[Rfam]
RNA sequence: UAGCUGUGAAGACAACAUUUCUCGAUGCUGAGUUUUGAUAUGUAUGCUGAAUUUUAUGCGUGUCUGAGCUGC
Numbered sequence: 001u002a003g004c005u006g007u008g009a010a011g012a013c014a015a016c017a018u019u020u021c022u023c024g025a026u027g028c029u030g031a032g033u034u035u036u037g038a039u040a041u042g043u044a045u046g047c048u049g050a051a052u053u054u055u056a057u058g059c060g061u062g063u064c065u066g067a068g069c070u071g072c
Base pairs, nucleotide, nucleotide: 001071002070003069004068
RNA: small nucleolar RNA snoR126